[Rfam]
The record is an 82-nucleotide sequence from Bacillus sp. J14TS2, which matches "Group II catalytic intron D1-D4-1" in Rfam. It scores 68 bits against the family's covariance model. On this family, see Bonen and Vogel, Trends Genet 2001: "The ins and outs of group II introns".
RNA sequence: CAACCAAGAUGGUGACAUCUUGGUGAAUCACAAGAAGUCAGCAGAGGUCGUAGUAGUGUGAAAGGACCGAAACAUGAAGGAC
Numbered sequence: 001c002a003a004c005c006a007a008g009a010u011g012g013u014g015a016c017a018u019c020u021u022g023g024u025g026a027a028u029c030a031c032a033a034g035a036a037g038u039c040a041g042c043a044g045a046g047g048u049c050g051u052a053g054u055a056g057u058g059u060g061a062a063a064g065g066a067c068c069g070a071a072a073c074a075u076g077a078a079g080g081a082c
Stems, first nucleotide, its partner, number of pairs: 001025002004023008038045002047082003056075004